[Rfam]
RNA sequence: GUGGGGUAUGGAGAUAUGGCUCCGAAGACGUAUCUGGGCAUGUUUGUGGGGGCCUUGUGCGCGUUAGCCGGAGUACUGACGAUAGCUCUUCCUGUGCCAGUCAUCGUGUCUAAU
Numbered sequence: 001g002u003g004g005g006g007u008a009u010g011g012a013g014a015u016a017u018g019g020c021u022c023c024g025a026a027g028a029c030g031u032a033u034c035u036g037g038g039c040a041u042g043u044u045u046g047u048g049g050g051g052g053c054c055u056u057g058u059g060c061g062c063g064u065u066a067g068c069c070g071g072a073g074u075a076c077u078g079a080c081g082a083u084a085g086c087u088c089u090u091c092c093u094g095u096g097c098c099a100g101u102c103a104u105c106g107u108g109u110c111u112a113a114u
Stems, first nucleotide, its partner, number of pairs: 001114002004111002007108005013102003018097001021094001037077002040074001050062001
RNA: Potassium channel RNA editing signal
Organism: Brenthis ino